[Rfam]
RNA: R2 RNA element
RNA sequence: ACGUAGCUUAAGUCGCUGGUAAUAUGAAAAUAAUGCCUGCUGCCUUGGCAUAACAUCAAGAAGGCAUAAACAUCGCAAAAGUACGUAGUAUGUAGUAUGUUUAGUACGUAUGUAGGUGUUGCGGAACCCUCAAUGUAAAGAAGGUUCAGAUAGAGCAAUUAAUCGUGCAUGCUAGACUUACCUACCACACAAGGUGAUGGCGGACCUAGUAUCUAUGGAAGAUUUCCAUUCCUUAGCGAUA
Numbered sequence: 001a002c003g004u005a006g007c008u009u010a011a012g013u014c015g016c017u018g019g020u021a022a023u024a025u026g027a028a029a030a031u032a033a034u035g036c037c038u039g040c041u042g043c044c045u046u047g048g049c050a051u052a053a054c055a056u057c058a059a060g061a062a063g064g065c066a067u068a069a070a071c072a073u074c075g076c077a078a079a080a081g082u083a084c085g086u087a088g089u090a091u092g093u094a095g096u097a098u099g100u101u102u103a104g105u106a107c108g109u110a111u112g113u114a115g116g117u118g119u120u121g122c123g124g125a126a127c128c129c130u131c132a133a134u135g136u137a138a139a140g141a142a143g144g145u146u147c148a149g150a151u152a153g154a155g156c157a158a159u160u161a162a163u164c165g166u167g168c169a170u171g172c173u174a175g176a177c178u179u180a181c182c183u184a185c186c187a188c189a190c191a192a193g194g195u196g197a198u199g200g201c202g203g204a205c206c207u208a209g210u211a212u213c214u215a216u217g218g219a220a221g222a223u224u225u226c227c228a229u230u231c232c233u234u235a236g237c238g239a240u241a
Stems, first nucleotide, its partner, number of pairs: 041066006072240005091235002095231001097229003104168005118159005124147004170211006